Source information
Guanidine-II riboswitch aptamer (mini-ykkC): a 48-nucleotide sequence from Corynebacterium maris. Gene Ontology term of the family: regulation of gene expression. The family's consensus secondary structure is taken from published work.

RNA sequence: UGGUCAGGACGACCUGACCCACAGGCAGGCUCUGCGGGGACGGCCCCG
Numbered sequence: 001u002g003g004u005c006a007g008g009a010c011g012a013c014c015u016g017a018c019c020c021a022c023a024g025g026c027a028g029g030c031u032c033u034g035c036g037g038g039g040a041c042g043g044c045c046c047c048g
Stems, first nucleotide, its partner, number of pairs: 002019007035048005
Dot-bracket structure: .(((((((....)))))))...............(((((....)))))